The family of this 325-nucleotide sequence from Chloroceryle aenea is "7SK RNA". A search with the family's covariance model found it, with a score of 227 bits. Rfam classes the family as a non-coding RNA gene. Pairs were carried over by alignment from the consensus structure, which is taken from published work. Clan: 7SK clan.
Nucleotides: 325
Stems, first nucleotide, its partner, number of pairs: 001106001005100004010096002014091002019088002026084004030078003034072002036068003041065003045061003115168001116166004120137001123134001125133001138160001140158001145156003198268001200266001204262002207259006220249001222247001225245005292325002295321001297319003300314005
Number, partner (000 for none) and nucleotide at each position: 001106c002000u003000u004000u005100g006099u007098g008097g009000a010096g011095g012000a013000u014091g015090a016000u017000u018000u019088g020087g021000c022000u023000a024000c025000a026084a027083c028082a029081u030078g031077u032076c033000a034072c035071c036068c037067c038066a039000c040000u041065g042064a043063u044000c045061a046060c047059c048000a049000g050000a051000g052000u053000u054000g055000a056000u057000u058000c059047g060046g061045u062000u063043a064042u065041c066038u067037g068036g069000c070000u071035g072034g073000c074000u075000g076032g077031a078030u079000g080000g081029g082028u083027g084026u085000c086000u087020c088019c089000u090015u091014c092000c093000u094000c095011c096010c097008u098007c099006a100005c101000u102000g103000c104000u105000c106001g107000a108000c109000g110000u111000g112000c113000a114000u115168c116166c117165c118164u119163c120137c121000c122000a123134a124000a125133g126000c127000u128000g129000c130000a131000c132000a133125c134123u135000c136000a137120g138160u139000c140158a141000a142000a143000g144000a145156g146155g147154a148000c149000a150000g151000c152000c153000u154147u155146c156145c157000c158140u159000a160138a161000c162000a163119g164118a165117g166116g167000c168115g169000u170000a171000c172000c173000a174000u175000u176000c177000a178000u179000c180000a181000g182000u183000c184000a185000a186000g187000g188000c189000u190000a191000u192000a193000g194000c195000c196000u197000u198268g199000c200266u201000g202000c203000c204262c205261u206000u207259c208258c209257u210256u211255g212254c213000u214000a215000g216000a217000a218000c219000a220249u221000a222247c223000a224000a225245a226244c227243a228242a229241g230000c231000u232000c233000u234000a235000g236000g237000u238000c239000c240000a241229u242228u243227u244226g245225u246000a247222g248000g249220a250000g251000a252000a253000u254212g255211u256210a257209a258208g259207g260000u261205a262204g263000u264000c265000a266200a267000u268198c269000u270000u271000c272000c273000a274000a275000g276000a277000c278000u279000g280000c281000a282000g283000a284000c285000a286000c287000a288000u289000c290000c291000a292325a293324g294000u295321g296000a297319g298318g299317c300314a301313c302312u303311g304310c305000a306000u307000g308000g309000g310304g311303c312302a313301g314300u315000c316000u317299g318298c319297c320000a321295u322000u323000g324293u325292u
On this family, see Blencowe, Curr Biol 2002: "Transcription: surprising role for an elusive small nuclear RNA".
Lineage of the source: Eukaryota > Opisthokonta > Dipnotetrapodomorpha > Aves > Chloroceryle.